[Rfam]
RNA: SAM (S-adenosyl methionine) riboswitch aptamer
RNA sequence: GGUCCUGAGCGCCAGCGUCAAGCCCCGGCUCGCUGGCCGGCAACCCUCCCUGCGACGGGGUGCCCCGGGUGACGACCUGGCCGUGCGCGUCCGCGCCCGGCAAGCAGCGGCC
Numbered sequence: 001g002g003u004c005c006u007g008a009g010c011g012c013c014a015g016c017g018u019c020a021a022g023c024c025c026c027g028g029c030u031c032g033c034u035g036g037c038c039g040g041c042a043a044c045c046c047u048c049c050c051u052g053c054g055a056c057g058g059g060g061u062g063c064c065c066c067g068g069g070u071g072a073c074g075a076c077c078u079g080g081c082c083g084u085g086c087g088c089g090u091c092c093g094c095g096c097c098c099g100g101c102a103a104g105c106a107g108c109g110g111c112c
Stems, first nucleotide, its partner, number of pairs: 001077004009038001011037006021030002039064003044060003049054001080101004085096004
Dot-bracket structure: ((((....(.((((((....((......)).)))))))(((..(((..(....)...))).))).........))))..((((.((((....)))).))))...........